Rfam assigns this 271-nucleotide sequence from Caldicellulosiruptor owensensis to the family "Bacterial large signal recognition particle RNA". Rfam classes the family as a non-coding RNA gene. The family's consensus secondary structure is taken from published work. Lineage of the source: Bacteria > Bacillota > Caldicellulosiruptoraceae > Caldicellulosiruptor > Caldicellulosiruptor owensensis. On this family, see Rosenblad et al., Nucleic Acids Res 2003: "SRPDB: Signal Recognition Particle Database". Rfam's curators write: The signal recognition particle (SRP) is a universally conserved ribonucleoprotein involved in the co-translational targeting of proteins to membranes.
RNA sequence: CUGUGCUAUGAUGGGGAGGUAGCGGUGCCCUGUAACCCGCAAUCCGCUAUAGCGGGGUCGAAUAGCCAGACUGAGGUAUAACCCUUUUGGCAUUGAGGGCAGACCGGGGUGAGGAUGGUUGUGUCCUGCGCAACGCGAAGGCUGUGAACCCCGCCAGGUCCGGAAGGAAGCAACGGUAAGCAGUUUUUCGCGUGUGCCGCAGGGGUGCAUGACAGGAGCCUGUCGGGUCUGCUAUUUCACCAGGGGGGUUAUAUCGAAGCUGGUCGCACAG
Number, nucleotide and partner (000 for none) at each position: 001c271002u270003g269004u268005g267006c266007u000008a000009u060010g059011a058012u057013g031014g030015g029016g028017a000018g026019g000020u024021a000022g000023c000024g020025g000026u018027g000028c016029c015030c014031u013032g000033u000034a000035a000036c056037c055038c054039g053040c052041a000042a000043u000044c000045c000046g000047c000048u000049a000050u000051a000052g040053c039054g038055g037056g036057g012058u011059c010060g009061a000062a000063u000064a000065g264066c263067c262068a261069g260070a000071c259072u258073g000074a000075g255076g254077u253078a252079u251080a000081a249082c248083c247084c246085u245086u244087u243088u242089g241090g240091c000092a000093u000094u000095g235096a000097g000098g233099g232100c231101a230102g229103a228104c000105c000106g224107g223108g220109g219110u218111g000112a000113g000114g000115a000116u215117g000118g213119u212120u211121g210122u209123g208124u207125c203126c202127u201128g200129c199130g198131c194132a193133a000134c192135g191136c190137g189138a188139a000140g185141g184142c183143u182144g181145u180146g000147a000148a000149c000150c000151c176152c175153g174154c000155c000156a000157g000158g000159u168160c167161c166162g000163g000164a000165a000166g161167g160168a159169a000170g000171c000172a000173a000174c153175g152176g151177u000178a000179a000180g145181c144182a143183g142184u141185u140186u000187u000188u138189c137190g136191c135192g134193u132194g131195u000196g000197c000198c130199g129200c128201a127202g126203g125204g000205g000206u000207g124208c123209a122210u121211g120212a119213c118214a000215g116216g000217a000218g110219c109220c108221u000222g000223u107224c106225g000226g000227g000228u103229c102230u101231g100232c099233u098234a000235u095236u000237u000238c000239a000240c090241c089242a088243g087244g086245g085246g084247g083248g082249u081250u000251a079252u078253a077254u076255c075256g000257a000258a072259g071260c069261u068262g067263g066264u065265c000266g006267c005268a004269c003270a002271g001
A search with the family's covariance model found it, with a score of 183 bits.